[Rfam]
Shown here is a 135-nucleotide RNA from Frankineae bacterium MT45, a member of the family "Guanidine-I riboswitch aptamer". About the family: This family represents a conserved RNA structure found upstream of the ykkC and yxkD genes in Bacillus subtilis and related genes in other bacteria.
RNA sequence: GCGAGGCGUGUCUAGGGUUCCGUACGCGUGGCAUGGCGACUGGCGACAGCGACGCGGGGUCUGGUCCGAGAGACACAGGCGAUCGUCGGCGCCCGCCGGUCGGUCGUUCCACGGCGGGAGAAAAGCCCGGGAGAU
Numbered sequence: 001g002c003g004a005g006g007c008g009u010g011u012c013u014a015g016g017g018u019u020c021c022g023u024a025c026g027c028g029u030g031g032c033a034u035g036g037c038g039a040c041u042g043g044c045g046a047c048a049g050c051g052a053c054g055c056g057g058g059g060u061c062u063g064g065u066c067c068g069a070g071a072g073a074c075a076c077a078g079g080c081g082a083u084c085g086u087c088g089g090c091g092c093c094c095g096c097c098g099g100u101c102g103g104u105c106g107u108u109c110c111a112c113g114g115c116g117g118g119a120g121a122a123a124a125g126c127c128c129g130g131g132a133g134a135u
Stems, first nucleotide, its partner, number of pairs: 008076005015067002020064002022061001023058001025056004078108008110130001112133001116128003
The source organism's lineage runs through Bacteria, Bacillati, Actinomycetota, Actinomycetes and Frankiales.
A search with the family's covariance model found it, with a score of 70 bits.